[Rfam]
RNA sequence: CGGGAGAUGGAUACACGAGUCUCGACAAGAUAAGAUUACUCGUCACGUAAUUCUUCCAAAAAAAAAAUCGCCUUCUGAUGACUGUAACUUGUCAAGUAUUAAUUUACAGACAGAUACGGGGCAUACAUUU
Numbered sequence: 001c002g003g004g005a006g007a008u009g010g011a012u013a014c015a016c017g018a019g020u021c022u023c024g025a026c027a028a029g030a031u032a033a034g035a036u037u038a039c040u041c042g043u044c045a046c047g048u049a050a051u052u053c054u055u056c057c058a059a060a061a062a063a064a065a066a067a068u069c070g071c072c073u074u075c076u077g078a079u080g081a082c083u084g085u086a087a088c089u090u091g092u093c094a095a096g097u098a099u100u101a102a103u104u105u106a107c108a109g110a111c112a113g114a115u116a117c118g119g120g121g122c123a124u125a126c127a128u129u130u
Base pairs, nucleotide, nucleotide: 002057003056004055005054006053007052015043016042017041018040022033067124068123070122071121072120073119074118082109083108084107087104089102090101